The family of this 97-nucleotide RNA sequence from Cellulomonas shaoxiangyii is "Bacterial small signal recognition particle RNA". Taxonomically the source falls in Cellulomonas (Bacteria, Actinomycetota, Micrococcales, Cellulomonadaceae). Rfam classes the family as a non-coding RNA gene. On this family, see Rosenblad et al., Nucleic Acids Res 2003: "SRPDB: Signal Recognition Particle Database". About the family: The signal recognition particle (SRP) is a universally conserved ribonucleoprotein involved in the co-translational targeting of proteins to membranes.
RNA sequence: CCAGACCCCUCGUACGGCGUCACCCCGUUGAACCCCCCCAGGGCCGGAAGGCAGCAAGGGCAGGCGGGCUCUGGCGGGUGUGCGGGGGGUCCUUGCA
Numbered sequence: 001c002c003a004g005a006c007c008c009c010u011c012g013u014a015c016g017g018c019g020u021c022a023c024c025c026c027g028u029u030g031a032a033c034c035c036c037c038c039c040a041g042g043g044c045c046g047g048a049a050g051g052c053a054g055c056a057a058g059g060g061c062a063g064g065c066g067g068g069c070u071c072u073g074g075c076g077g078g079u080g081u082g083c084g085g086g087g088g089g090u091c092c093u094u095g096c097a
Stems, first nucleotide, its partner, number of pairs: 004091011015078001018076005024068006035060003043052003